TPP riboswitch aptamer (THI element): a 109-nucleotide RNA from Bifidobacterium ramosum. NCBI's taxonomy places the organism under Bacteria, Actinomycetes, Bifidobacteriales, Bifidobacteriaceae, Bifidobacterium.
[Rfam]
RNA sequence: AACGUAAUGCAGGGGAACCCGGAGGCAACGGCCGGGUUGAGAGUGGCGUGAGCCUGACCCUUGGAACCUGUUGGUUAAGACCAUCGUAGGGAGCAGCGAUAUGAGCGAA
Numbered sequence: 001a002a003c004g005u006a007a008u009g010c011a012g013g014g015g016a017a018c019c020c021g022g023a024g025g026c027a028a029c030g031g032c033c034g035g036g037u038u039g040a041g042a043g044u045g046g047c048g049u050g051a052g053c054c055u056g057a058c059c060c061u062u063g064g065a066a067c068c069u070g071u072u073g074g075u076u077a078a079g080a081c082c083a084u085c086g087u088a089g090g091g092a093g094c095a096g097c098g099a100u101a102u103g104a105g106c107g108a109a
Base pairs, nucleotide, nucleotide: 008095009094010093011061012060013059014058016055017037018036019035020034021033045054046053047052067090068089069088070087072083073082074081